[Rfam]
RNA sequence: UUGUGCCUGGCUCCCUGUAUGCCACACAUAUAGACCAACCCAUUGAGUGAUUGGCUACUGUGGGUGGCGUGCAAGGAGCCAAGCAUGA
Numbered sequence: 001u002u003g004u005g006c007c008u009g010g011c012u013c014c015c016u017g018u019a020u021g022c023c024a025c026a027c028a029u030a031u032a033g034a035c036c037a038a039c040c041c042a043u044u045g046a047g048u049g050a051u052u053g054g055c056u057a058c059u060g061u062g063g064g065u066g067g068c069g070u071g072c073a074a075g076g077a078g079c080c081a082a083g084c085a086u087g088a
Stems, first nucleotide, its partner, number of pairs: 001088006008081007016073009027062003

mir-160 microRNA precursor family: an 88-nucleotide RNA sequence from Musa troglodytarum. The family's consensus secondary structure was predicted with PFOLD. A search with the family's covariance model found it, with a score of 91 bits. The organism belongs to Musa, within Eukaryota. The family has 7 seed sequences and 1,502 matches in Rfam 15.1.